[Rfam]
RNA: Eukaryotic large subunit ribosomal RNA, nucleotides 3191 to 3356
Organism: Ascogregarina taiwanensis
RNA sequence: GAUAACUGGCUUGUGGCAGCCAAGCGUUCAUAGCGACGUUGCUUUUUGAUCCUUCGAUGUCGGCUCUUCCUAUCAUUGAGGACGCAGAAGUCCCAAAGUGUCGGAUUGUUCACCCGUUAAUCAGGGAACGUGAGCUGGGUUUAGACCGUCGCGAGACAGGUUAGUU
Number, nucleotide and partner (000 for none) at each position: 001g000002a000003u000004a000005a000006c000007u000008g000009g050010c000011u048012u000013g047014u000015g043016g042017c041018a040019g039020c038021c000022a000023a000024g034025c033026g000027u000028u000029c000030a000031u000032a000033g025034c024035g000036a000037c000038g020039u019040u018041g017042c016043u015044u000045u000046u000047u013048g011049a000050u009051c000052c000053u000054u000055c000056g000057a000058u000059g000060u000061c138062g136063g135064c134065u133066c130067u127068u126069c125070c124071u123072a000073u000074c100075a099076u000077u095078g094079a000080g093081g092082a091083c090084g000085c000086a000087g000088a000089a000090g083091u082092c081093c080094c078095a077096a000097a000098g000099u075100g074101u000102c116103g115104g114105a000106u112107u000108g000109u000110u000111c000112a106113c000114c104115c103116g102117u000118u000119a000120a000121u000122c000123a071124g070125g069126g068127a067128a000129c000130g066131u000132g000133a065134g064135c063136u062137g000138g061139g000140u000141u000142u000143a000144g162145a161146c160147c159148g157149u156150c155151g000152c000153g000154a000155g150156a149157c148158a000159g147160g146161u145162u144163a000164g000165u000166u000